[Rfam]
RNA sequence: UCUCAGUGAUGACCUCUGCAUGUGUCUUACGCCCUGUGCCAACAACAGAACCUGUGAAGGUGAACCCACUGUUGUUGCCAGGGCAACAAGGGGAUGGCUUGUUGGGGUUACCAACUGUCUGAUGGGAC
Numbered sequence: 001u002c003u004c005a006g007u008g009a010u011g012a013c014c015u016c017u018g019c020a021u022g023u024g025u026c027u028u029a030c031g032c033c034c035u036g037u038g039c040c041a042a043c044a045a046c047a048g049a050a051c052c053u054g055u056g057a058a059g060g061u062g063a064a065c066c067c068a069c070u071g072u073u074g075u076u077g078c079c080a081g082g083g084c085a086a087c088a089a090g091g092g093g094a095u096g097g098c099u100u101g102u103u104g105g106g107g108u109u110a111c112c113a114a115c116u117g118u119c120u121g122a123u124g125g126g127a128c
Base pairs, nucleotide, nucleotide: 001127002126003125004124
Shown here is a 128-nucleotide sequence from Esox lucius, a member of the family "Small nucleolar RNA SNORD22". It is annotated as a C/D-box small nucleolar RNA. Rfam links the family to the GO terms RNA processing and nucleolus.